[Rfam]
Bacterial RNase P class B: a 379-nucleotide sequence from Apilactobacillus ozensis. NCBI's taxonomy places the organism under Bacteria, Bacillota, Lactobacillales, Lactobacillaceae, Apilactobacillus ozensis. Ribonuclease P (RNase P) is a ubiquitous endoribonuclease, found in archaea, bacteria and eukarya as well as chloroplasts and mitochondria.
RNA sequence: AAUUCCGAGUAAUCGCGGCUAACUUAUGUUAGCUGAGGAAAGUCCACUCUCGCACAAACUGAGAUGUUUGUAGUGUUCGUGCUUGGCGAAAAAAUAAGCUGAGGAGCUAUCUUUGAUAGUUAUGGCGAAAAAAAGGGCUAAGGUUUUCUAUGCCUGAGUAUUUCUGAAAGUGCCACAGUGACGAUACAGUUUAGGAAACUUUACUGGUGGAACGCGGUAAACCCCUCGAGCGGGAAACCCAAACUUUGGUAGGGGAGCUUCACACACGGGAAUUGAACUAAGUGUGGGGGGGAGAUAUAAAUAUCUCUCAGAUAGAUGAUUACUACUUAAAUAUUAACGUCCUGAGUUCUUAUUUAAGCACAAAACAUGGCUUACAAGA
Numbered sequence: 001a002a003u004u005c006c007g008a009g010u011a012a013u014c015g016c017g018g019c020u021a022a023c024u025u026a027u028g029u030u031a032g033c034u035g036a037g038g039a040a041a042g043u044c045c046a047c048u049c050u051c052g053c054a055c056a057a058a059c060u061g062a063g064a065u066g067u068u069u070g071u072a073g074u075g076u077u078c079g080u081g082c083u084u085g086g087c088g089a090a091a092a093a094a095u096a097a098g099c100u101g102a103g104g105a106g107c108u109a110u111c112u113u114u115g116a117u118a119g120u121u122a123u124g125g126c127g128a129a130a131a132a133a134a135g136g137g138c139u140a141a142g143g144u145u146u147u148c149u150a151u152g153c154c155u156g157a158g159u160a161u162u163u164c165u166g167a168a169a170g171u172g173c174c175a176c177a178g179u180g181a182c183g184a185u186a187c188a189g190u191u192u193a194g195g196a197a198a199c200u201u202u203a204c205u206g207g208u209g210g211a212a213c214g215c216g217g218u219a220a221a222c223c224c225c226u227c228g229a230g231c232g233g234g235a236a237a238c239c240c241a242a243a244c245u246u247u248g249g250u251a252g253g254g255g256a257g258c259u260u261c262a263c264a265c266a267c268g269g270g271a272a273u274u275g276a277a278c279u280a281a282g283u284g285u286g287g288g289g290g291g292g293a294g295a296u297a298u299a300a301a302u303a304u305c306u307c308u309c310a311g312a313u314a315g316a317u318g319a320u321u322a323c324u325a326c327u328u329a330a331a332u333a334u335u336a337a338c339g340u341c342c343u344g345a346g347u348u349c350u351u352a353u354u355u356a357a358g359c360a361c362a363a364a365a366c367a368u369g370g371c372u373u374a375c376a377a378g379a
Base pairs, nucleotide, nucleotide: 004379005378007375008324009323010322011321012320013319014318016035017034018033019032020031021030040373041372042371044370045369046368049234050233051232052231053230054071055070056069057068058067059066077229078228079227081225082103083102084101085100086099087098104123105121106120107119108118109117110116124224125223127164128163129162130161135155136154137153138152142149143148170222171221172218173217174216187206188205189204190203193200194199238254239253240252258289259288260287261286262285263284264283290309291308292307293306294305295304296303297302326358327357328356329355330354331353332352333351